Record summary:
Rfam assigns this 206-nucleotide sequence from Robbsia andropogonis to the family "FMN riboswitch aptamer (RFN element)". The base pairs follow the family's consensus structure, which is taken from published work.

RNA sequence: AAGUGCUCUCGGGGCGGGGUGAGAUUCCCCACCGGCGGUGAUGAUGUGGUUAAGGUGACCGGUGUCGAUUCGGACCUAGUGUCUGGCUGAUGAUAUCGAUAGCCGCCGCAUCCAGCCCGCGAGCGCCUGGCGAUGACAUCUCCAGGGUCAGCAGAUCCGGUGUGAUUCCGGGGCCGACGGUAUAGUCCGGAUGAAAGAGAGAAGCG
Number, nucleotide and partner (000 for none) at each position: 001a000002a000003g000004u203005g000006c201007u200008c199009u198010c197011g000012g000013g000014g000015c000016g000017g029018g028019g027020u000021g000022a000023g000024a000025u000026u000027c019028c018029c017030c000031a186032c185033c176034g175035g120036c119037g118038g117039u000040g000041a000042u000043g000044a000045u000046g000047u000048g000049g000050u000051u000052a000053a000054g000055g000056u000057g000058a000059c000060c000061g000062g000063u000064g000065u000066c000067g000068a000069u000070u000071c000072g000073g000074a000075c000076c000077u000078a000079g000080u000081g000082u000083c000084u000085g000086g000087c000088u000089g000090a000091u000092g000093a000094u000095a000096u000097c000098g000099a000100u000101a000102g000103c000104c000105g000106c000107c000108g000109c000110a000111u000112c000113c000114a000115g000116c000117c038118c037119g036120c035121g000122a000123g152124c151125g000126c000127c000128u000129g000130g000131c000132g000133a000134u000135g000136a000137c000138a000139u000140c000141u000142c000143c000144a000145g000146g000147g000148u000149c000150a000151g124152c123153a000154g000155a000156u172157c171158c170159g169160g168161u000162g000163u000164g000165a000166u000167u000168c160169c159170g158171g157172g156173g000174c000175c034176g033177a000178c189179g188180g187181u000182a000183u000184a000185g032186u031187c180188c179189g178190g000191a000192u000193g000194a000195a000196a000197g010198a009199g008200a007201g006202a000203a004204g000205c000206g000
About this RNA: NCBI's taxonomy places the organism under Bacteria, Pseudomonadati, Pseudomonadota, Betaproteobacteria, Robbsia. The RFN element is a highly conserved domain that is found frequently in the 5'-untranslated regions of prokaryotic mRNAs that encode for flavin mononucleotide (FMN) biosynthesis and transport proteins. This element is a metabolite-dependent riboswitch that directly binds FMN in the absence of proteins. In Bacillus subtilis, the riboswitch most likely controls gene expression by causing premature transcription termination within the 5' untranslated region of the ribDEAHT operon and precluding access to the ribosome-binding site of ypaA mRNA.The FMN riboswitch structure, reported in present an FMN-bound six-stem junction, adopts a butterfly-like scaffold, stapled together by opposingly directed but nearly identically folded peripheral domains. A search with the family's covariance model found it, with a score of 102 bits.